[Rfam]
RNA sequence: CCAGCGCCUGCUUCAAGUAAUCCAGGAUAGGCUGGUUAAACGCAGCAACGGCCUAUUCUCGGUUACUUGCUUCAGGAGCCGG
Numbered sequence: 001c002c003a004g005c006g007c008c009u010g011c012u013u014c015a016a017g018u019a020a021u022c023c024a025g026g027a028u029a030g031g032c033u034g035g036u037u038a039a040a041c042g043c044a045g046c047a048a049c050g051g052c053c054u055a056u057u058c059u060c061g062g063u064u065a066c067u068u069g070c071u072u073c074a075g076g077a078g079c080c081g082g
Base pairs, nucleotide, nucleotide: 002081004079005078007076008075009074010073014069015068016067017066018065019064020063021062022061024059025058026057027056028055029054030053031052032051033050
RNA: mir-26 microRNA precursor family